[Rfam]
RNA sequence: AAAAAGGGGCGCUGAAGAGAGCUUUUCGUCGACAGUGAGAUAUUCAUAACACUGUCAUGGAGUUGCUCUCUUUACUGCUACCUG
Number, nucleotide and partner (000 for none) at each position: 001a000002a000003a000004a000005a000006g000007g000008g000009g000010c000011g000012c000013u000014g073015a072016a071017g070018a069019g000020a067021g066022c065023u000024u000025u061026u060027c059028g058029u000030c000031g056032a055033c054034a000035g052036u051037g000038a000039g000040a000041u000042a000043u000044u000045c000046a000047u000048a000049a000050c000051a036052c035053u000054g033055u032056c031057a000058u028059g027060g026061a025062g000063u000064u000065g022066c021067u020068c000069u018070c017071u016072u015073u014074a000075c000076u000077g000078c000079u000080a000081c000082c000083u000084g000
mir-46/mir-47/mir-281 microRNA precursor family: an 84-nucleotide sequence from Notodromas monacha. The base pairs follow the family's consensus structure, which was predicted with RNAalifold. The literature on the family includes a 2001 paper in Science by Lau et al., "An abundant class of tiny RNAs with probable regulatory roles in Caenorhabditis elegans". Gene Ontology terms of the family: RISC complex and miRNA-mediated post-transcriptional gene silencing.